The family of this 330-nucleotide RNA sequence from a Parcubacteria group bacterium is "permuted transfer-messenger RNA". On this family, see Williams and Bartel, RNA 1996: "Phylogenetic analysis of tmRNA secondary structure". The base pairs follow the family's consensus structure, which is taken from published work. The sequence is in the family's curated seed alignment.
RNA sequence: GGUAGCGUCCGUGCUGGAGAUAGACGUUGUGGACCCGGGGGCAGUACCCGGCGCCUCCACCAAUCGCCCCUCACGAAUAGUCACGCCUAGUGCUGACGACGUCGUGUGUAUCUCGCACUGAUCGCGGGGUAUGGCUAGACAGCUACGGCUGGUGACGGACUCCGUCGCAAGACAGAGGCAGGUCGCUUUAUCUAGCUAGGGUCUUUGGGGGCGAAAUAGGAUCGACACACGUUGAAGGCCAGCACAGCUCUAAGAGUUCGCUCAAGGAGCAGGAUUCUGCCAAAACCAAACGCCAACGAUAACCAUCGGGCGUUCGCUGCCGCUGCAUAA
Numbered sequence: 001g002g003u004a005g006c007g008u009c010c011g012u013g014c015u016g017g018a019g020a021u022a023g024a025c026g027u028u029g030u031g032g033a034c035c036c037g038g039g040g041g042c043a044g045u046a047c048c049c050g051g052c053g054c055c056u057c058c059a060c061c062a063a064u065c066g067c068c069c070c071u072c073a074c075g076a077a078u079a080g081u082c083a084c085g086c087c088u089a090g091u092g093c094u095g096a097c098g099a100c101g102u103c104g105u106g107u108g109u110a111u112c113u114c115g116c117a118c119u120g121a122u123c124g125c126g127g128g129g130u131a132u133g134g135c136u137a138g139a140c141a142g143c144u145a146c147g148g149c150u151g152g153u154g155a156c157g158g159a160c161u162c163c164g165u166c167g168c169a170a171g172a173c174a175g176a177g178g179c180a181g182g183u184c185g186c187u188u189u190a191u192c193u194a195g196c197u198a199g200g201g202u203c204u205u206u207g208g209g210g211g212c213g214a215a216a217u218a219g220g221a222u223c224g225a226c227a228c229a230c231g232u233u234g235a236a237g238g239c240c241a242g243c244a245c246a247g248c249u250c251u252a253a254g255a256g257u258u259c260g261c262u263c264a265a266g267g268a269g270c271a272g273g274a275u276u277c278u279g280c281c282a283a284a285a286c287c288a289a290a291c292g293c294c295a296a297c298g299a300u301a302a303c304c305a306u307c308g309g310g311c312g313u314u315c316g317c318u319g320c321c322g323c324u325g326c327a328u329a330a
Base pairs, nucleotide, nucleotide: 001249002248003247005245014242015241016240017239025231026230027229029228030227031226035051036050037049038048039047052213053212054211055210056209057208058207